[Rfam]
RNA: FMN riboswitch aptamer (RFN element)
Organism: Eubacterium sp. CAG:115
Nucleotides: 116
Stems, first nucleotide, its partner, number of pairs: 003114004008109003017029003031096002033086002035049004044084002052062003066082005088099003
Number, partner (000 for none) and nucleotide at each position: 001000u002000a003114u004113c005112u006111g007000u008109u009108u010107c011000g012000g013000g014000g015000c016000g017029g018028a019027g020000u021000g022000c023000a024000a025000u026000u027019c028018u029017c030000c031096a032095c033086c034085g035049g036048c037047g038046g039000u040000g041000a042000a043000a044084g045083u046038c047037c048036g049035c050000g051000a052062g053061c054060c055000g056000c057000a058000u059000a060054g061053g062052c063000u064000g065000a066082a067081c068080c069079g070078g071000u072000g073000c074000a075000a076000u077000u078070c079069c080068g081067g082066u083045a084044c085034c086033g087000a088099c089098g090097g091000u092000a093000u094000a095032g096031u097090c098089c099088g100000g101000a102000u103000g104000a105000a106000a107010g108009a109008a110000u111006c112005a113004g114003a115000a116000a